[Rfam]
RNA sequence: UAACUUGCGAAAAGCGAAAAGGGUGGGUAAAAUAAACGUGUGAGGCGAUGAAUGUCGCCGGGACUAUAGCAAUAAACGCUCUGUGGAAUAAACGGGACGGACCCGGGGGCAGAACCCGGCGCCUCCACCUAAGGAAAUCACCGGUUUUCUUAGGUGGGGGUGAAUCAGGAUCGACGUACGCAGUAAAGAUAGAGUUUUUGCUCGGCAUGGUACCACCGUUAUCGGACUAAAAAAAACAAAUGGAACCAAUGAUAAUGGUCCAGCUGUAAGACUUGCAAACGAUAAUGUUCGUUUCGCAAGUGUGGUUCUUGCCGCGGCUUAAUGGUCGUUGUUUUAACCUUUUAACAGCGCGGUUUCCGAGGGCACCGGGCAACAGAAGCCCUCGGGCU
Numbered sequence: 001u002a003a004c005u006u007g008c009g010a011a012a013a014g015c016g017a018a019a020a021g022g023g024u025g026g027g028u029a030a031a032a033u034a035a036a037c038g039u040g041u042g043a044g045g046c047g048a049u050g051a052a053u054g055u056c057g058c059c060g061g062g063a064c065u066a067u068a069g070c071a072a073u074a075a076a077c078g079c080u081c082u083g084u085g086g087a088a089u090a091a092a093c094g095g096g097a098c099g100g101a102c103c104c105g106g107g108g109g110c111a112g113a114a115c116c117c118g119g120c121g122c123c124u125c126c127a128c129c130u131a132a133g134g135a136a137a138u139c140a141c142c143g144g145u146u147u148u149c150u151u152a153g154g155u156g157g158g159g160g161u162g163a164a165u166c167a168g169g170a171u172c173g174a175c176g177u178a179c180g181c182a183g184u185a186a187a188g189a190u191a192g193a194g195u196u197u198u199u200g201c202u203c204g205g206c207a208u209g210g211u212a213c214c215a216c217c218g219u220u221a222u223c224g225g226a227c228u229a230a231a232a233a234a235a236a237c238a239a240a241u242g243g244a245a246c247c248a249a250u251g252a253u254a255a256u257g258g259u260c261c262a263g264c265u266g267u268a269a270g271a272c273u274u275g276c277a278a279a280c281g282a283u284a285a286u287g288u289u290c291g292u293u294u295c296g297c298a299a300g301u302g303u304g305g306u307u308c309u310u311g312c313c314g315c316g317g318c319u320u321a322a323u324g325g326u327c328g329u330u331g332u333u334u335u336a337a338c339c340u341u342u343u344a345a346c347a348g349c350g351c352g353g354u355u356u357c358c359g360a361g362g363g364c365a366c367c368g369g370g371c372a373a374c375a376g377a378a379g380c381c382c383u384c385g386g387g388c389u
Base pairs, nucleotide, nucleotide: 040064041063068202069201070200071199072198078195079194080193081192082191083190084189093180094179097177098176099175103119104118105117106116107115120162121161122160123159124158125157126156203218204217205216208229209228210227213225214224351368352367353366354365359384360383361382362381363380364379
This 389-nucleotide RNA sequence belongs to the Rfam family "Alphaproteobacteria transfer-messenger RNA". The base pairs follow the family's consensus structure, which is taken from published work. Rfam classes the family as a non-coding RNA gene.